[Rfam]
RNA sequence: GGACGGUGACGAUUUCAUCAGUUAAGGUCUCGUUCGUCGUAAUGGCGAUCUUCGCCUUGACGACCAUCCUGUUAUAUCACCACCCAUAUUCCGAGUCU
Numbered sequence: 001g002g003a004c005g006g007u008g009a010c011g012a013u014u015u016c017a018u019c020a021g022u023u024a025a026g027g028u029c030u031c032g033u034u035c036g037u038c039g040u041a042a043u044g045g046c047g048a049u050c051u052u053c054g055c056c057u058u059g060a061c062g063a064c065c066a067u068c069c070u071g072u073u074a075u076a077u078c079a080c081c082a083c084c085c086a087u088a089u090u091c092c093g094a095g096u097c098u
Stems, first nucleotide, its partner, number of pairs: 001098004047058002

Small nucleolar RNA Z43: a 98-nucleotide RNA from Rhynchospora breviuscula.
On this family, see Chen et al., Nucleic Acids Res 2003: "The high diversity of snoRNAs in plants: identification and comparative study of 120 snoRNA genes from Oryza sativa".
Its family is annotated with RNA processing and nucleolus in the Gene Ontology.
The base pairs follow the family's consensus structure, which was predicted with PFOLD.
Rfam classes the family as a C/D-box small nucleolar RNA.